[Rfam]
Background: Bacterial RNase P class A: a 367-nucleotide sequence from Cryptobacterium curtum. Rfam classes the family as a ribozyme. Gene Ontology terms of the family: ribonuclease P activity, tRNA processing and dimeric ribonuclease P complex.
RNA sequence: GGAGCGGGUUGGACAACCGCGGGCGGAUGUAUCCGCAUGAGGAAAGUCCGGGCUUCAAUGGGCAGGAUGCCAGCUAACGGCUGGGCGAGGCGACUCGACGGAUAGUGCCACAGAAAAGAAAACUCCCCUGUUAUGCGACAAUAUGUCGCUACCGCAGGAGAAAAGCUGAAACGGUGCGGUAAGAGCGCACCAGUGCGUCGGCAACGACGUAGCUUGGAAAACCCCAUCCGAAGCAAACGUAAAUAGGAACGCCAUACGGUCGCCCAUCCGUGCGUUCGGGUUGCGUGCUUGAGAUGUCUGGCAACAGGCACCGUAGAUAAAUGGUUGUCUUUAACGACAGAACCCGGCUUACAGGCCCGCUCCUUUA
Numbered sequence: 001g002g003a004g005c006g007g008g009u010u011g012g013a014c015a016a017c018c019g020c021g022g023g024c025g026g027a028u029g030u031a032u033c034c035g036c037a038u039g040a041g042g043a044a045a046g047u048c049c050g051g052g053c054u055u056c057a058a059u060g061g062g063c064a065g066g067a068u069g070c071c072a073g074c075u076a077a078c079g080g081c082u083g084g085g086c087g088a089g090g091c092g093a094c095u096c097g098a099c100g101g102a103u104a105g106u107g108c109c110a111c112a113g114a115a116a117a118g119a120a121a122a123c124u125c126c127c128c129u130g131u132u133a134u135g136c137g138a139c140a141a142u143a144u145g146u147c148g149c150u151a152c153c154g155c156a157g158g159a160g161a162a163a164a165g166c167u168g169a170a171a172c173g174g175u176g177c178g179g180u181a182a183g184a185g186c187g188c189a190c191c192a193g194u195g196c197g198u199c200g201g202c203a204a205c206g207a208c209g210u211a212g213c214u215u216g217g218a219a220a221a222c223c224c225c226a227u228c229c230g231a232a233g234c235a236a237a238c239g240u241a242a243a244u245a246g247g248a249a250c251g252c253c254a255u256a257c258g259g260u261c262g263c264c265c266a267u268c269c270g271u272g273c274g275u276u277c278g279g280g281u282u283g284c285g286u287g288c289u290u291g292a293g294a295u296g297u298c299u300g301g302c303a304a305c306a307g308g309c310a311c312c313g314u315a316g317a318u319a320a321a322u323g324g325u326u327g328u329c330u331u332u333a334a335c336g337a338c339a340g341a342a343c344c345c346g347g348c349u350u351a352c353a354g355g356c357c358c359g360c361u362c363c364u365u366u367a
Base pairs, nucleotide, nucleotide: 001363002362003361004360005359006358007357008356009355010354011352012329013328014327015326016325017324018323020039021038023036024035025034026033027032044350045349046348048347049346050345051344052343053233054232055231056230060265061264062263063262065229066228067227068226069225070084071083072082073081074080085099086097087096088095089094100224101223105222106221108217109216123165124164125160127158128157129156130155131154173191174190175189176188177187178186193213194211195210196209197208198207199206200205237286238285239284240283247277248276249275250274251273252272256271257270258269259268293312295310296309297308298307299306300305
The match comes from Rfam's covariance-model search (295 bits).